[Rfam]
This 154-nucleotide sequence from Todus mexicanus belongs to the Rfam family "Small nucleolar RNA SNORA12".
Rfam's curators write: U108 belongs to the H/ACA family of snoRNAs. The sequence is predicted to guide the pseudouridylation of the U372 residue in the 28S rRNA subunit. However it has not been reported as a pseudouridylation site.
Rfam classes the family as an H/ACA-box small nucleolar RNA.
The family's consensus secondary structure was predicted with RNAalifold.
Lineage of the source: Eukaryota > Teleostomi > Amniota > Dinosauria > Todus.
The match comes from Rfam's covariance-model search (76 bits).
RNA sequence: UAUUGUGGUGGUUUCUGUAUUUGGCAGAUCUGUAACUGUGUCAGAUUGGCCUUAAACCACCACAGAUAUCAGAAAGGAGAAAGCUGUGCUGAGAACUUUUACAAGAUUUUAGUUUUCAGCUUUUUUUUCAGCUUUUUGUUCAGCUCCUACAGAA
Number, nucleotide and partner (000 for none) at each position: 001u000002a000003u000004u000005g063006u062007g061008g060009u059010g058011g057012u000013u000014u000015c000016u000017g000018u000019a000020u000021u000022u000023g051024g050025c049026a000027g047028a046029u045030c044031u043032g042033u000034a000035a000036c000037u000038g000039u000040g000041u000042c032043a031044g030045a029046u028047u027048g000049g025050c024051c023052u000053u000054a000055a000056a000057c011058c010059a009060c008061c007062a006063c005064a000065g000066a000067u000068a000069u000070c000071a000072g000073a000074a000075a000076g147077g146078a145079g144080a000081a000082a000083g000084c000085u000086g000087u000088g000089c000090u000091g000092a000093g000094a000095a000096c000097u000098u000099u000100u000101a139102c138103a137104a136105g135106a000107u000108u000109u000110u000111a000112g000113u000114u000115u000116u000117c000118a000119g000120c000121u000122u000123u000124u000125u000126u000127u000128u000129c000130a000131g000132c000133u000134u000135u105136u104137u103138g102139u101140u000141c000142a000143g000144c079145u078146c077147c076148u000149a000150c000151a000152g000153a000154a000